Annotation: The record is a 96-nucleotide RNA from Clostridium sp. M62/1, which matches "pemK RNA" in Rfam. It is annotated as a cis-regulatory element. NCBI's taxonomy places the organism under Bacteria, Bacillati, Bacillota, Clostridia, Clostridium. Rfam's curators put it in the seed alignment.

[Rfam]
RNA sequence: AUCAUGAUACUUCCGUCCAGUCACAGCCCCGCAAGAAGCGGGAUCACGCAAUGAGGACGGCUCGGAGAGAUCCUCGGAGGGGUGAAAUGCCCAUGA
Numbered sequence: 001a002u003c004a005u006g007a008u009a010c011u012u013c014c015g016u017c018c019a020g021u022c023a024c025a026g027c028c029c030c031g032c033a034a035g036a037a038g039c040g041g042g043a044u045c046a047c048g049c050a051a052u053g054a055g056g057a058c059g060g061c062u063c064g065g066a067g068a069g070a071u072c073c074u075c076g077g078a079g080g081g082g083u084g085a086a087a088u089g090c091c092c093a094u095g096a
Stems, first nucleotide, its partner, number of pairs: 012093001013060006061079003065075003080092003